[Rfam]
This 152-nucleotide part of an RNA from Chrysochloris asiatica belongs to the Rfam family "Eukaryotic large subunit ribosomal RNA". NCBI's taxonomy places the organism under Eukaryota, Metazoa, Vertebrata, Eutheria, Chrysochloris. The match comes from Rfam's covariance-model search (1656 bits).
RNA sequence: UUGACUGGGGCGGUAAGCCUGUCAAACGGUAACUCAGGUGUCCUAAAGCCAGCUCAGGGAGGACAGAAAACCUCAGGUGGAGCAGAAAGGCAAAAAGCUUUCUUGAUCUUGAUUUUCAGUACUAAUACAGAUGGUGCAAGCAGGGCCUCGUG
Numbered sequence: 001u002u003g004a005c006u007g008g009g010g011c012g013g014u015a016a017g018c019c020u021g022u023c024a025a026a027c028g029g030u031a032a033c034u035c036a037g038g039u040g041u042c043c044u045a046a047a048g049c050c051a052g053c054u055c056a057g058g059g060a061g062g063a064c065a066g067a068a069a070a071c072c073u074c075a076g077g078u079g080g081a082g083c084a085g086a087a088a089g090g091c092a093a094a095a096a097g098c099u100u101u102c103u104u105g106a107u108c109u110u111g112a113u114u115u116u117c118a119g120u121a122c123u124a125a126u127a128c129a130g131a132u133g134g135u136g137c138a139a140g141c142a143g144g145g146c147c148u149c150g151u152g
Base pairs, nucleotide, nucleotide: 004014005013006012017039018038019037020036021035042145043144048102051099052098053097054081055080059074060073061072062071082091083090107131108130109129112126113125114124134141135140